[Rfam]
RNA sequence: CUGCGUCACCGGGGGUGCCCCUUCCAAGGGAAGCGGGCUGAGAUGACACCCCAGGAACCUGAACCGGGUCAUUCCGGCGGAGGGAGCGUGACGGAGCUGGCCC
Numbered sequence: 001c002u003g004c005g006u007c008a009c010c011g012g013g014g015g016u017g018c019c020c021c022u023u024c025c026a027a028g029g030g031a032a033g034c035g036g037g038c039u040g041a042g043a044u045g046a047c048a049c050c051c052c053a054g055g056a057a058c059c060u061g062a063a064c065c066g067g068g069u070c071a072u073u074c075c076g077g078c079g080g081a082g083g084g085a086g087c088g089u090g091a092c093g094g095a096g097c098u099g100g101c102c103c
Stems, first nucleotide, its partner, number of pairs: 006091004011052004016046001017038004058083003064077004
RNA: TPP riboswitch aptamer (THI element)